[Rfam]
RNA sequence: CCAUGGGAACGGGGCUGGGGGCAGCUCCAUGCCCCUAUCUGCCCAUGCAGUGAGGAAGCCGGUCUGUGACUCACCCCCCGCCAUCGGGCA
Numbered sequence: 001c002c003a004u005g006g007g008a009a010c011g012g013g014g015c016u017g018g019g020g021g022c023a024g025c026u027c028c029a030u031g032c033c034c035c036u037a038u039c040u041g042c043c044c045a046u047g048c049a050g051u052g053a054g055g056a057a058g059c060c061g062g063u064c065u066g067u068g069a070c071u072c073a074c075c076c077c078c079c080g081c082c083a084u085c086g087g088g089c090a
Stems, first nucleotide, its partner, number of pairs: 004087001006085001008084001011082002018079004026069002028066002031063003
RNA: NoRC associated RNA, pRNA
Organism: Zapornia atra